[Rfam]
RNA sequence: AUCGCAGCGGGAGGCAAUGACGCGCGGUCCACGCAACGGCCGCCUCAGACCGCGCCGAGCCACUGGCGAGACCGACCGCUCGGCAU
Numbered sequence: 001a002u003c004g005c006a007g008c009g010g011g012a013g014g015c016a017a018u019g020a021c022g023c024g025c026g027g028u029c030c031a032c033g034c035a036a037c038g039g040c041c042g043c044c045u046c047a048g049a050c051c052g053c054g055c056c057g058a059g060c061c062a063c064u065g066g067c068g069a070g071a072c073c074g075a076c077c078g079c080u081c082g083g084c085a086u
Stems, first nucleotide, its partner, number of pairs: 001086002005082001007080001010077002013061003022055008038073002041068004
c-di-GMP-II-GAG riboswitch aptamer: an 86-nucleotide sequence. The base pairs follow the family's consensus structure, which is taken from published work.